This 129-nucleotide RNA belongs to the Rfam family "Streptomyces RNA 5676". On this family, see Vockenhuber et al., RNA Biol 2011: "Deep sequencing-based identification of small non-coding RNAs in Streptomyces coelicolor". Identified by deep sequencing of transcriptome at the end of exponential growth phase. Appears longer on northern blot than sequencing transcript. This indicates processing step. Streptomyces specific.
RNA sequence: GGAUGAGAGAUACACCCGUCCACAGGGGACUGUGGGCGGCCUCAGGCCGUAGCCUCCCCAGCUUCGACCUGGUCGUGCCUCGCGCACACACCCGGAACCCACGGGUUCCGGUUCUCCUCAAUGAUCGGA
Dot-bracket structure: ...((((.((.....((((((((((....))))))))))..(((((.((.(((.......))).)).)))))..((((.....))))....((((((((....))))))))...)))))).(....)..